RNA sequence: UAUGCAAAUGACGAUAAAAUAGACAGGGACAUCAGUACUCCUAAUUAGAGGAUGACGAUUUGUCGUUGGGAAUCUCUCUGAUGCAUA
Numbered sequence: 001u002a003u004g005c006a007a008a009u010g011a012c013g014a015u016a017a018a019a020u021a022g023a024c025a026g027g028g029a030c031a032u033c034a035g036u037a038c039u040c041c042u043a044a045u046u047a048g049a050g051g052a053u054g055a056c057g058a059u060u061u062g063u064c065g066u067u068g069g070g071a072a073u074c075u076c077u078c079u080g081a082u083g084c085a086u087a
Base pairs, nucleotide, nucleotide: 002086003085004084005083006082
RNA: Small nucleolar RNA R44/J54/Z268 family